Plant signal recognition particle RNA: a 305-nucleotide RNA sequence from Ziziphus jujuba.
The organism belongs to Ziziphus, within Eukaryota.
The family's RNA type in Rfam is non-coding RNA gene.
The family's consensus secondary structure is taken from published work.

RNA sequence: GCCGGGCUCAGUAACGAGGGCCUAUAAUCCGCGUGGGGGCAUUAAGGUGUUGAGACAUUGUUACAGCCCAUUUGAUCGGAUCCCGCGUUGCUAAUUUCUGGCCCGCCCGUUCCAAGCCAAGAGCAGAGCCUUGUGGUUUGGGCGAAGGCCCGUACUCCAUGGUUCAUAGUGUGGAGGGCACCGCGUGAGGCUGGCUUCACAGAGCAGCGACCACCUCCCUCUCCUGGCAGUGGAAGGAUAACGGGUCGGUGCUACCUGGGUCCAACAUGGUCUAAUGGGCGGUCUCUAAUCGAACCAACACUUUU
Numbered sequence: 001g002c003c004g005g006g007c008u009c010a011g012u013a014a015c016g017a018g019g020g021c022c023u024a025u026a027a028u029c030c031g032c033g034u035g036g037g038g039g040c041a042u043u044a045a046g047g048u049g050u051u052g053a054g055a056c057a058u059u060g061u062u063a064c065a066g067c068c069c070a071u072u073u074g075a076u077c078g079g080a081u082c083c084c085g086c087g088u089u090g091c092u093a094a095u096u097u098c099u100g101g102c103c104c105g106c107c108c109g110u111u112c113c114a115a116g117c118c119a120a121g122a123g124c125a126g127a128g129c130c131u132u133g134u135g136g137u138u139u140g141g142g143c144g145a146a147g148g149c150c151c152g153u154a155c156u157c158c159a160u161g162g163u164u165c166a167u168a169g170u171g172u173g174g175a176g177g178g179c180a181c182c183g184c185g186u187g188a189g190g191c192u193g194g195c196u197u198c199a200c201a202g203a204g205c206a207g208c209g210a211c212c213a214c215c216u217c218c219c220u221c222u223c224c225u226g227g228c229a230g231u232g233g234a235a236g237g238a239u240a241a242c243g244g245g246u247c248g249g250u251g252c253u254a255c256c257u258g259g260g261u262c263c264a265a266c267a268u269g270g271u272c273u274a275a276u277g278g279g280c281g282g283u284c285u286c287u288a289a290u291c292g293a294a295c296c297a298a299c300a301c302u303u304u305u
Stems, first nucleotide, its partner, number of pairs: 001040003004023006028037003044304009056292001058289003063283002066280001068278005074272004078263006085256001087255002090252001092251002098249008107237002110235005116228004121223003126165005132159002135156003139152005173218005184209003191202003